A member of the RNA family "int-alpA RNA" from Candidatus Regiella insecticola, 70 nucleotides long. Pairs were carried over by alignment from the consensus structure, which is taken from published work. From the family's description: Acidobacteria (1 example), Planctomycetes (1 example), Proteobacteria. The family has 167 seed sequences and 577 matches in Rfam 15.1. The family's RNA type in Rfam is small RNA.
[Rfam]
RNA sequence: GUUAUGUCUAGGCUGAUCCCCGAAAACCAGUACACCUCUACUGGCUGGCAUAGCUCCUAACUAAUAGAGG
Numbered sequence: 001g002u003u004a005u006g007u008c009u010a011g012g013c014u015g016a017u018c019c020c021c022g023a024a025a026a027c028c029a030g031u032a033c034a035c036c037u038c039u040a041c042u043g044g045c046u047g048g049c050a051u052a053g054c055u056c057c058u059a060a061c062u063a064a065u066a067g068a069g070g
Stems, first nucleotide, its partner, number of pairs: 001054008011021002027044005035070005